[Rfam]
RNA sequence: UUCAGUAGCGGGUCCCUGAGUCCCUCUCGGAGGGAAGGACCUGCCGCCGAAUUGCCGCCGAAGAAUGAAUGAAAUGGCGGCGGCAAUUCGGUGGCAGGUCCUUCCCUCCGAGAGGGACUCAGGGACCCGUUGCCAAAUUGC
Numbered sequence: 001u002u003c004a005g006u007a008g009c010g011g012g013u014c015c016c017u018g019a020g021u022c023c024c025u026c027u028c029g030g031a032g033g034g035a036a037g038g039a040c041c042u043g044c045c046g047c048c049g050a051a052u053u054g055c056c057g058c059c060g061a062a063g064a065a066u067g068a069a070u071g072a073a074a075u076g077g078c079g080g081c082g083g084c085a086a087u088u089c090g091g092u093g094g095c096a097g098g099u100c101c102u103u104c105c106c107u108c109c110g111a112g113a114g115g116g117a118c119u120c121a122g123g124g125a126c127c128c129g130u131u132g133c134c135a136a137a138u139u140g141c
Stems, first nucleotide, its partner, number of pairs: 010128007018120002021117040
RNA: mraW RNA